[Rfam]
RNA sequence: UUAACUCAAAUUUGUAUGGAGUCAGGACGUUUGCCUAUGUUUGCCGCUAGGGCUGCUGUUCCAACUGCAUUCAAAUUUGAGUUA
Numbered sequence: 001u002u003a004a005c006u007c008a009a010a011u012u013u014g015u016a017u018g019g020a021g022u023c024a025g026g027a028c029g030u031u032u033g034c035c036u037a038u039g040u041u042u043g044c045c046g047c048u049a050g051g052g053c054u055g056c057u058g059u060u061c062c063a064a065c066u067g068c069a070u071u072c073a074a075a076u077u078u079g080a081g082u083u084a
Base pairs, nucleotide, nucleotide: 008078009077010076011075012074013073014072016070018068020066021065022064025061026060027059028058029057034052035051036050039047040046

The record is an 84-nucleotide RNA from Bombyx mori, which matches "mir-2807 microRNA precursor family" in Rfam. The source organism's lineage runs through Eukaryota, Bilateria, Protostomia, Insecta and Bombyx. A search with the family's covariance model found it, with a score of 79 bits. For this family Rfam cites "MicroRNAs of Bombyx mori identified by Solexa sequencing" (Liu et al., BMC Genomics, 2010). The family has 8 seed sequences and 5,120 matches in Rfam 15.1. Gene Ontology terms of the family: miRNA-mediated post-transcriptional gene silencing and RISC complex. Pairs were carried over by alignment from the consensus structure, which was predicted with RNAalifold.